This 89-nucleotide RNA sequence from Caenorhabditis briggsae belongs to the Rfam family "mir-54 microRNA precursor family".
Rfam links the family to the GO terms miRNA-mediated post-transcriptional gene silencing and RISC complex.
RNA sequence: GCUGAUCUUUGACUCGAACCUGGACAUCGUUUUGUACACGAAGUCAAGCUGCUGUACCCGUGAUUCCAUGUAUCGAGUCAACGAUCGCC
Numbered sequence: 001g002c003u004g005a006u007c008u009u010u011g012a013c014u015c016g017a018a019c020c021u022g023g024a025c026a027u028c029g030u031u032u033u034g035u036a037c038a039c040g041a042a043g044u045c046a047a048g049c050u051g052c053u054g055u056a057c058c059c060g061u062g063a064u065u066c067c068a069u070g071u072a073u074c075g076a077g078u079c080a081a082c083g084a085u086c087g088c089c
Stems, first nucleotide, its partner, number of pairs: 003087005009081006016074002019070001021068004031060001034057005